[Rfam]
Overview:
This 118-nucleotide RNA sequence from Lysobacter sp. Root96 belongs to the Rfam family "SAM riboswitch aptamer (S box leader)". The family's consensus secondary structure is taken from published work. A search with the family's covariance model found it, with a score of 79 bits.
RNA sequence: CAUCCAUCGAGACCGGCUGAGGGACAGGCCCUUUGAAGCCGGGGCAACCCAACGCGACGCAAGUCGUGUGAAGGUGCCAAUUCCUGCGGCCCGCUCUGCGUUGGUCGGAAGAUGGUUG
Numbered sequence: 001c002a003u004c005c006a007u008c009g010a011g012a013c014c015g016g017c018u019g020a021g022g023g024a025c026a027g028g029c030c031c032u033u034u035g036a037a038g039c040c041g042g043g044g045c046a047a048c049c050c051a052a053c054g055c056g057a058c059g060c061a062a063g064u065c066g067u068g069u070g071a072a073g074g075u076g077c078c079a080a081u082u083c084c085u086g087c088g089g090c091c092c093g094c095u096c097u098g099c100g101u102u103g104g105u106c107g108g109a110a111g112a113u114g115g116u117u118g
Base pairs, nucleotide, nucleotide: 001118002117004115005114006113007112008111013042014041015040016039017038021031022030023029025086026085027084028083043078044077045076046075048074049073050070051069082110087107088106089105090104091103